About this RNA
The record is a 52-nucleotide RNA from Solanum tuberosum, which matches "MIR1886 microRNA precursor family" in Rfam. Taxonomically the source falls in Solanum (Eukaryota, Viridiplantae, Solanales, Solanoideae). A search with the family's covariance model found it, with a score of 71 bits.
[Rfam]
RNA sequence: UGAGAUGGAAUUAGGGUUUGGACAUGUGAUUUUACGUUGAUUCCAUCUCAUG
Numbered sequence: 001u002g003a004g005a006u007g008g009a010a011u012u013a014g015g016g017u018u019u020g021g022a023c024a025u026g027u028g029a030u031u032u033u034a035c036g037u038u039g040a041u042u043c044c045a046u047c048u049c050a051u052g
Base pairs, nucleotide, nucleotide: 001050002049003048004047005046006045007044008043009042010041011040012039013038014037016035017034018029019028020027